[Rfam]
Rfam assigns this 589-nucleotide part of an RNA from Thermomicrobium roseum to the family "Bacterial large subunit ribosomal RNA".
Rfam's curators put it in the seed alignment.
NCBI's taxonomy places the organism under Bacteria, Thermomicrobiota, Thermomicrobia, Thermomicrobium, Thermomicrobium roseum.
RNA sequence: UGGAUGCCUAGGUGGUCAGGGCCGAGGAAGGACGCGGCCGAGCGGCGAAACGCCCCGGGGAGCUGCGGGCGAGCGGAGAUCCGGGGGUGUCCGAAUGGGGCAACCUGGCGCGGUGGGGAGCCGCGUCGCCCUCUUGGGAAGGGUGAGAGGGGGACCUCUUGCUCGACUGGGAGGGUGGGCACCGGGGGAAGUGAAACAUCUCAGUACCCCGAGGAAGAGAGAGUGAUUCCCGGAGUAGUGGCGAGCGAAACGGGAGGAGCCCAAACCGUCGUCGCCCAGAGGGCUGCCGUCCGGAAGCGGCGACGGGGUUGGACGGCCUGUCCGGGCCAAGCGGCAGGGCGGCCGCGGGUGCCUGAGUGGGAGCCGAACGCUGCUGGAAGGGGCGACCGGAGAGGGUGAGAGUCCCGUAGGCGGACUGCUCAGGUGCUCGUGGGACAGGUGCGUGAGUACCACGGGGCACGAGGAACCCUGUGGGAAGCUGGGGGGACCACCCCUCCAAGGCUAAACACCCUGACCGACCGAUAGUGGAGAGUACCGUGAGGGAACGGUGAAAAGGACCCCGGCGAGGGGGGUGAAAGAGCGCCUGAAA
Numbered sequence: 001u002g003g004a005u006g007c008c009u010a011g012g013u014g015g016u017c018a019g020g021g022c023c024g025a026g027g028a029a030g031g032a033c034g035c036g037g038c039c040g041a042g043c044g045g046c047g048a049a050a051c052g053c054c055c056c057g058g059g060g061a062g063c064u065g066c067g068g069g070c071g072a073g074c075g076g077a078g079a080u081c082c083g084g085g086g087g088u089g090u091c092c093g094a095a096u097g098g099g100g101c102a103a104c105c106u107g108g109c110g111c112g113g114u115g116g117g118g119a120g121c122c123g124c125g126u127c128g129c130c131c132u133c134u135u136g137g138g139a140a141g142g143g144u145g146a147g148a149g150g151g152g153g154a155c156c157u158c159u160u161g162c163u164c165g166a167c168u169g170g171g172a173g174g175g176u177g178g179g180c181a182c183c184g185g186g187g188g189a190a191g192u193g194a195a196a197c198a199u200c201u202c203a204g205u206a207c208c209c210c211g212a213g214g215a216a217g218a219g220a221g222a223g224u225g226a227u228u229c230c231c232g233g234a235g236u237a238g239u240g241g242c243g244a245g246c247g248a249a250a251c252g253g254g255a256g257g258a259g260c261c262c263a264a265a266c267c268g269u270c271g272u273c274g275c276c277c278a279g280a281g282g283g284c285u286g287c288c289g290u291c292c293g294g295a296a297g298c299g300g301c302g303a304c305g306g307g308g309u310u311g312g313a314c315g316g317c318c319u320g321u322c323c324g325g326g327c328c329a330a331g332c333g334g335c336a337g338g339g340c341g342g343c344c345g346c347g348g349g350u351g352c353c354u355g356a357g358u359g360g361g362a363g364c365c366g367a368a369c370g371c372u373g374c375u376g377g378a379a380g381g382g383g384c385g386a387c388c389g390g391a392g393a394g395g396g397u398g399a400g401a402g403u404c405c406c407g408u409a410g411g412c413g414g415a416c417u418g419c420u421c422a423g424g425u426g427c428u429c430g431u432g433g434g435a436c437a438g439g440u441g442c443g444u445g446a447g448u449a450c451c452a453c454g455g456g457g458c459a460c461g462a463g464g465a466a467c468c469c470u471g472u473g474g475g476a477a478g479c480u481g482g483g484g485g486g487a488c489c490a491c492c493c494c495u496c497c498a499a500g501g502c503u504a505a506a507c508a509c510c511c512u513g514a515c516c517g518a519c520c521g522a523u524a525g526u527g528g529a530g531a532g533u534a535c536c537g538u539g540a541g542g543g544a545a546c547g548g549u550g551a552a553a554a555g556g557a558c559c560c561c562g563g564c565g566a567g568g569g570g571g572g573u574g575a576a577a578g579a580g581c582g583c584c585u586g587a588a589a
Stems, first nucleotide, its partner, number of pairs: 006584001007548002011520002013517009022178002030092003033047003053086007062074003097106003107127007129175009182213001183211005193200002227506001228255005238246002258503004266306010313444003318438005349427012363412003369385004374381001388392001394406003450474008481497005535542002558570004